[Rfam]
Nucleotides: 202
Base pairs, nucleotide, nucleotide: 016109017108018107019106023103024102025101026100029097031095042094043093044092045091046090047089048088049087050086051085052084053083054082057076058075060073061072062071063070064069117151118150119149124144125143126142127141128140129139170197171196172195173194174193175192176191177190178189179188180187
Number, partner (000 for none) and nucleotide at each position: 001000a002000a003000a004000c005000u006000a007000u008000g009000a010000a011000c012000a013000g014000a015000a016109g017108g018107g019106a020000a021000g022000a023103u024102g025101g026100g027000u028000g029097g030000c031095c032000a033000a034000u035000g036000c037000g038000c039000a040000a041000a042094u043093a044092a045091u046090c047089u048088u049087a050086u051085u052084u053083u054082u055000g056000a057076u058075g059000u060073a061072a062071u063070c064069u065000a066000a067000a068000a069064a070063g071062a072061u073060u074000u075058c076057a077000g078000a079000a080000a081000c082054a083053a084052a085051a086050a087049u088048a089047g090046g091045a092044u093043u094042a095031g096000u097029c098000u099000g100026c101025c102024c103023a104000u105000u106019u107018u108017c109016u110000a111000u112000a113000a114000g115000u116000a117151u118150a119149a120000g121000a122000a123000a124144g125143c126142u127141a128140u129139u130000u131000u132000u133000a134000a135000c136000g137000g138000u139129a140128a141127u142126a143125g144124c145000u146000u147000a148000u149119u150118u151117g152000u153000a154000u155000u156000g157000c158000u159000u160000a161000a162000a163000a164000g165000c166000g167000a168000c169000u170197a171196a172195u173194c174193c175192u176191u177190c178189c179188a180187a181000u182000g183000u184000a185000a186000u187180u188179u189178g190177g191176g192175a193174g194173g195172a196171u197170u198000u199000u200000u201000u202000u
This 202-nucleotide RNA from Lysinibacillus telephonicus belongs to the Rfam family "Bacillus sRNA ncr1575". The base pairs follow the family's consensus structure, which is taken from published work. The literature on the family includes a 2010 paper in Nucleic Acids Res by Irnov et al., "Identification of regulatory RNAs in Bacillus subtilis". The organism belongs to Lysinibacillus, within Bacteria. The match comes from Rfam's covariance-model search (136 bits).